Record summary
The record is a 65-nucleotide RNA sequence from Caenorhabditis brenneri, which matches "mir-44 microRNA precursor family" in Rfam. For this family Rfam cites "Repertoire and evolution of miRNA genes in four divergent nematode species" (de Wit et al., Genome Res, 2009). Lineage of the source: Eukaryota > Metazoa > Protostomia > Rhabditoidea > Caenorhabditis.

[Rfam]
RNA sequence: CUGGAUGUGCUCGUUAGUCAUAGUAGCCUAUCCUGAACGGCCUAUGACUAGAGACACAUUCAGCU
Numbered sequence: 001c002u003g004g005a006u007g008u009g010c011u012c013g014u015u016a017g018u019c020a021u022a023g024u025a026g027c028c029u030a031u032c033c034u035g036a037a038c039g040g041c042c043u044a045u046g047a048c049u050a051g052a053g054a055c056a057c058a059u060u061c062a063g064c065u
Stems, first nucleotide, its partner, number of pairs: 001063009011054002016049007